[Rfam]
Shown here is a 67-nucleotide RNA sequence from Bacillus sp. FJAT-27986, a member of the family "Bacillaceae-1 RNA". By type it is a small RNA. Pairs were carried over by alignment from the consensus structure, which is taken from published work. The source organism's lineage runs through Bacteria, Bacillati, Bacilli, Bacillaceae and Bacillus.
RNA sequence: ACUUAAGGAACGAAGACUAAAAGCGCCACAUCGUGUGACAACGUCUUUGUGACCAACAUCCUGUUGG
Numbered sequence: 001a002c003u004u005a006a007g008g009a010a011c012g013a014a015g016a017c018u019a020a021a022a023g024c025g026c027c028a029c030a031u032c033g034u035g036u037g038a039c040a041a042c043g044u045c046u047u048u049g050u051g052a053c054c055a056a057c058a059u060c061c062u063g064u065u066g067g
Stems, first nucleotide, its partner, number of pairs: 011049007025039001027037003053067005